[Rfam]
RNA sequence: CCACAACUGUGUCUUAUGGCUUUCUAUUCCUAUGUGAGUUUGUUCUAACAUUUCAUGUAGGGUUCAAAGCCAUUGGAUACACACUGGA
Numbered sequence: 001c002c003a004c005a006a007c008u009g010u011g012u013c014u015u016a017u018g019g020c021u022u023u024c025u026a027u028u029c030c031u032a033u034g035u036g037a038g039u040u041u042g043u044u045c046u047a048a049c050a051u052u053u054c055a056u057g058u059a060g061g062g063u064u065c066a067a068a069g070c071c072a073u074u075g076g077a078u079a080c081a082c083a084c085u086g087g088a
Stems, first nucleotide, its partner, number of pairs: 002087001008081007016073008026064001028062010
RNA: mir-135 microRNA precursor family